A member of the RNA family "U4 spliceosomal RNA" from Geotrypetes seraphini, 141 nucleotides long. For this family Rfam cites "The uRNA database" (Zwieb, Nucleic Acids Res, 1997). Rfam describes the family as follows. U4 small nuclear RNA (U4 snRNA) is a component of the major U2-dependent spliceosome. The organism belongs to Geotrypetes, within Eukaryota.
RNA sequence: ACCUUUGCGCAGUGGCAGUAUUGUAGCCAAUGAGGUUAAUCUGAGGCAUGAUUAUUGCUAAUUGAAAACUUUUCCCAAUACCCUGCUGUGUUGAUUUGCAAUAUAGUUGACAUUGGCAAUUUUUGAUAGUCUCCAUGGAGA
Numbered sequence: 001a002c003c004u005u006u007g008c009g010c011a012g013u014g015g016c017a018g019u020a021u022u023g024u025a026g027c028c029a030a031u032g033a034g035g036u037u038a039a040u041c042u043g044a045g046g047c048a049u050g051a052u053u054a055u056u057g058c059u060a061a062u063u064g065a066a067a068a069c070u071u072u073u074c075c076c077a078a079u080a081c082c083c084u085g086c087u088g089u090g091u092u093g094a095u096u097u098g099c100a101a102u103a104u105a106g107u108u109g110a111c112a113u114u115g116g117c118a119a120u121u122u123u124u125g126a127u128a129g130u131c132u133c134c135a136u137g138g139a140g141a
Stems, first nucleotide, its partner, number of pairs: 020052005026047003034042002085117003088113009130141004